RNA: TPP riboswitch aptamer (THI element)
RNA sequence: GAUGAGAGACAGGGGCGCCCUGGUGGGCUGAGAAGCACCCUUUGAACCUGAACCGGAUAAUGCCGGCGGAGGGAGUCGCUCGGGACUGUCG
Numbered sequence: 001g002a003u004g005a006g007a008g009a010c011a012g013g014g015g016c017g018c019c020c021u022g023g024u025g026g027g028c029u030g031a032g033a034a035g036c037a038c039c040c041u042u043u044g045a046a047c048c049u050g051a052a053c054c055g056g057a058u059a060a061u062g063c064c065g066g067c068g069g070a071g072g073g074a075g076u077c078g079c080u081c082g083g084g085a086c087u088g089u090c091g
Stems, first nucleotide, its partner, number of pairs: 006079001008077003011041004016035001017028004047072003053066004
Dot-bracket structure: .....(.(((((((.(((((....))))......)..)))).....(((...((((......))))...)))..))).)............